[Rfam]
RNA: Mitochondrial DNA control region secondary structure A
Organism: Mandrillus leucophaeus
RNA sequence: GUAUCAUAUGGGUGUAUGGACUUCAAGUGCAACCUAAAUAUUAACUUAUCUUAACACGUCCUUAUGUAAUUCGUGCAUUACUGCUAGUCAACACGGAUAUUAUAUA
Numbered sequence: 001g002u003a004u005c006a007u008a009u010g011g012g013u014g015u016a017u018g019g020a021c022u023u024c025a026a027g028u029g030c031a032a033c034c035u036a037a038a039u040a041u042u043a044a045c046u047u048a049u050c051u052u053a054a055c056a057c058g059u060c061c062u063u064a065u066g067u068a069a070u071u072c073g074u075g076c077a078u079u080a081c082u083g084c085u086a087g088u089c090a091a092c093a094c095g096g097a098u099a100u101u102a103u104a105u106a
Stems, first nucleotide, its partner, number of pairs: 007095001009093002012089001017083003023037001025035001027033002038059002041054004064078005